[Rfam]
RNA sequence: GUUUUGCGCAAGGGAUAGCAGCGGCAUCCUUUUUAUUUUUGCACAAGCGUUAGUUGCUUCAAAAAUAAAAAGAUAUAGCGAAUAGCCCGACCUUUU
Numbered sequence: 001g002u003u004u005u006g007c008g009c010a011a012g013g014g015a016u017a018g019c020a021g022c023g024g025c026a027u028c029c030u031u032u033u034u035a036u037u038u039u040u041g042c043a044c045a046a047g048c049g050u051u052a053g054u055u056g057c058u059u060c061a062a063a064a065a066u067a068a069a070a071a072g073a074u075a076u077a078g079c080g081a082a083u084a085g086c087c088c089g090a091c092c093u094u095u096u
Stems, first nucleotide, its partner, number of pairs: 012088003016084002021079002026074003032069010
A member of the RNA family "Flavo-1 RNA" from Mesonia phycicola, 96 nucleotides long. It is annotated as a small RNA. A search with the family's covariance model found it, with a score of 62 bits.